[Rfam]
Description
Fluoride riboswitch aptamer (crcB RNA motif): a 62-nucleotide RNA sequence from Acidiphilium cryptum. Its family is annotated with positive regulation of gene expression and response to fluoride in the Gene Ontology. Taxonomically the source falls in Acidiphilium cryptum (Bacteria, Pseudomonadati, Acetobacterales, Acidocellaceae). The family's consensus secondary structure is taken from published work. The sequence is in the family's curated seed alignment.
RNA sequence: GGCCGCGCCGGCGAUGGGGUUCGCCGUGAACCGCCCGCGGGGCUGAUGACUCCUGUUUCGAU
Dot-bracket structure: .........[[[[..((((((]]]].......((((...))))....)))))).........
Numbered sequence: 001g002g003c004c005g006c007g008c009c010g011g012c013g014a015u016g017g018g019g020u021u022c023g024c025c026g027u028g029a030a031c032c033g034c035c036c037g038c039g040g041g042g043c044u045g046a047u048g049a050c051u052c053c054u055g056u057u058u059c060g061a062u
Stems, first nucleotide, its partner, number of pairs: 010025004016053006033043004